[Rfam]
RNA sequence: AAUGGCAGUGACGACUCGGUAAUAUUCAAGCUCAACAGACCAAAUCACAGGUCCUUCUCGGUACAUGAGGUUGAUCUGUAUGCCGAUUAUCCCGCUGAACCGAGCCAUC
Numbered sequence: 001a002a003u004g005g006c007a008g009u010g011a012c013g014a015c016u017c018g019g020u021a022a023u024a025u026u027c028a029a030g031c032u033c034a035a036c037a038g039a040c041c042a043a044a045u046c047a048c049a050g051g052u053c054c055u056u057c058u059c060g061g062u063a064c065a066u067g068a069g070g071u072u073g074a075u076c077u078g079u080a081u082g083c084c085g086a087u088u089a090u091c092c093c094g095c096u097g098a099a100c101c102g103a104g105c106c107a108u109c
Stems, first nucleotide, its partner, number of pairs: 002108005
A member of the RNA family "Small nucleolar RNA Z107/R87" from Paspalum vaginatum, 109 nucleotides long. By type it is a C/D-box small nucleolar RNA. Lineage of the source: Eukaryota > Embryophyta > Petrosaviidae > Andropogonodae > Paspalum. The family has 9 seed sequences and 783 matches in Rfam 15.1.